Notes: This 358-nucleotide sequence from Bifidobacterium magnum belongs to the Rfam family "Bacterial RNase P class A".

[Rfam]
RNA sequence: UGAGAUCCCUUGAUGGCCGCGUUUCCCUAGGGAAAUGAGGAACUUCCGGGCUCCAUAGAGCACGAUGGCGGAUAACGUCCGCCCAGGGCGACCUGAGAGAUAGCGCAACAGAGAACAGACCGCCUGCGCCUCGUGUGCGGGUAAGGGUGAAACGGCGGUGUAAGAGACCACCGGAAUGCUGGUGACGGCGUUCGCAUGGCAAGCCUCAUCGGGAGCAAAGCCAAGUAGAAGGCAGGGCUGCUCGCCCAUAUGCCUUCGGGUAGGCUGCUAGAGCUCAGCGGCAACGUUGAGUCGAGAUGGAUGGCCAUCCGCAUUGGCAACAAUGCGACAGAACCCGGGGUAUAAGGGAUCUCAACAU
Numbered sequence: 001u002g003a004g005a006u007c008c009c010u011u012g013a014u015g016g017c018c019g020c021g022u023u024u025c026c027c028u029a030g031g032g033a034a035a036u037g038a039g040g041a042a043c044u045u046c047c048g049g050g051c052u053c054c055a056u057a058g059a060g061c062a063c064g065a066u067g068g069c070g071g072a073u074a075a076c077g078u079c080c081g082c083c084c085a086g087g088g089c090g091a092c093c094u095g096a097g098a099g100a101u102a103g104c105g106c107a108a109c110a111g112a113g114a115a116c117a118g119a120c121c122g123c124c125u126g127c128g129c130c131u132c133g134u135g136u137g138c139g140g141g142u143a144a145g146g147g148u149g150a151a152a153c154g155g156c157g158g159u160g161u162a163a164g165a166g167a168c169c170a171c172c173g174g175a176a177u178g179c180u181g182g183u184g185a186c187g188g189c190g191u192u193c194g195c196a197u198g199g200c201a202a203g204c205c206u207c208a209u210c211g212g213g214a215g216c217a218a219a220g221c222c223a224a225g226u227a228g229a230a231g232g233c234a235g236g237g238c239u240g241c242u243c244g245c246c247c248a249u250a251u252g253c254c255u256u257c258g259g260g261u262a263g264g265c266u267g268c269u270a271g272a273g274c275u276c277a278g279c280g281g282c283a284a285c286g287u288u289g290a291g292u293c294g295a296g297a298u299g300g301a302u303g304g305c306c307a308u309c310c311g312c313a314u315u316g317g318c319a320a321c322a323a324u325g326c327g328a329c330a331g332a333a334c335c336c337g338g339g340g341u342a343u344a345a346g347g348g349a350u351c352u353c354a355a356c357a358u
Stems, first nucleotide, its partner, number of pairs: 001354010012309007020037007042341003046338005051215004058243004063211005068082005083097001084095004098206002103204002105200002120146002122142008154172002157169003173195001174193008219266004228257006235247004273292008
Dot-bracket structure: ((((((((((.(((((((.(((((((....)))))))....[[[.[[[[[((((...[[[[.((((((((((.....)))))(((((....)))).)((...((((.............((((((((((.....))))))))..)).......((.(((.......))).))(((((((((....)))))))).)...))..)))))))))))))...((((.....((((((.((((.]]]]))))....)))))).....))))......((((((((....))))))))..........)))))))........................]]]]]]]]...))))))))))....